[Rfam]
RNA: TPP riboswitch aptamer (THI element)
Organism: Manganibacter manganicus
RNA sequence: CUCGCUCUAACGGGGUGCCGGACGCUGCUUGCGAACCGGCUGAGAGGCGAAACGCCAACCCGCUGAACCUGAUCCGGCUUGUACCGGCGGAGGGAUUAGAUGCUUCGGAACC
Number, nucleotide and partner (000 for none) at each position: 001c000002u000003c000004g000005c000006u100007c099008u098009a097010a096011c062012g061013g060014g059015g000016u000017g040018c039019c038020g037021g036022a000023c000024g000025c000026u000027g000028c000029u000030u000031g000032c000033g000034a000035a000036c021037c020038g019039g018040c017041u000042g000043a000044g000045a000046g000047g055048c054049g053050a000051a000052a000053c049054g048055c047056c000057a000058a000059c014060c013061c012062g011063c000064u000065g000066a000067a000068c093069c092070u091071g000072a000073u000074c087075c086076g085077g084078c000079u000080u000081g000082u000083a000084c077085c076086g075087g074088c000089g000090g000091a070092g069093g068094g000095a000096u010097u009098a008099g007100a006101u000102g000103c000104u000105u000106c000107g000108g000109a000110a000111c000112c000